Rfam assigns this 349-nucleotide part of an RNA from Paenibacillus durus to the family "Bacterial large subunit ribosomal RNA". The source organism's lineage runs through Bacteria, Bacilli, Caryophanales, Paenibacillaceae and Paenibacillus.

Nucleotides: 349
Stems, first nucleotide, its partner, number of pairs: 001349004009344008018335003035059005044049001060089005067083001069081004090094001102328007109320002113127003130165008138155001142151003168315004173245003178242002180238005187233003193227002198222005205214002246264006265269001275302001285301006
Number, partner (000 for none) and nucleotide at each position: 001349c002348g003347g004346a005000a006000g007000a008000a009344c010343u011342c012341u013340c014339g015338u016337u017000a018335a019334g020333g021000a022000a023000c024000u025000c026000g027000g028000c029000a030000a031000a032000a033000u034000g035059a036058c037057c038056c039055c040000g041000u042000a043000a044049c045000u046000u047000c048000g049044g050000g051000a052000g053000a054000a055039g056038g057037g058036g059035u060089g061088c062087c063086u064085c065000g066000g067083u068000a069081g070080g071079g072078u073000g074000a075000a076000u077000a078072g079071c080070c081069c082000g083067a084000g085064g086063g087062g088061g089060c090094c091000g092000c093000a094090g095000u096000g097000a098000a099000a100000a101000g102328g103327c104326c105325c106324a107323a108322g109320c110319g111000a112000c113127u114126g115125u116000u117000u118000a119000g120000c121000a122000a123000a124000a125115a126114c127113a128000c129000a130165g131164g132163u133162c134161u135160g136159u137158g138155c139000g140000a141000a142151g143150c144149c145000g146000c147000a148000a149144g150143g151142c152000g153000a154000a155138g156000u157000a158137u159136a160135c161134g162133g163132g164131c165130u166000g167000a168315c169314g170313c171312c172000u173245g174244c175243c176000c177000g178242g179241u180238g181237c182236u183235g184234g185000a186000a187233g188232g189231u190000u191000a192000a193227g194226g195000g196000g197000a198222g199221c200220g201219g202218u203000u204000a205214g206213g207000g208000g209000u210000a211000a212000c213206c214205c215000g216000a217000a218202g219201c220200u221199g222198u223000g224000a225000a226194c227193c228000g229000a230000a231189g232188c233187c234184c235183c236182a237181g238180u239000a240000a241179a242178c243175g244174g245173c246264g247263g248262c249261c250260g251259u252000a253000a254000c255000u256000a257000u258000a259251a260250c261249g262248g263247u264246c265269c266000u267000a268000a269265g270000g271000u272000a273000g274000c275302g276000a277000a278000a279000u280000u281000c282000c283000u284000u285301g286300u287299c288298a289297g290296g291000u292000a293000a294000a295000u296290u297289c298288u299287g300286a301285c302275c303000c304000g305000c306000a307000c308000g309000a310000a311000u312171g313170g314169c315168g316000u317000a318000a319110c320109g321000a322108c323107u324106u325105g326104g327103g328102c329000g330000c331000u332000g333020u334019c335018u336000c337016a338015a339014c340013g341012a342011g343010a344009g345000a346004u347003c348002c349001g
The base pairs follow the family's consensus structure, which is taken from published work.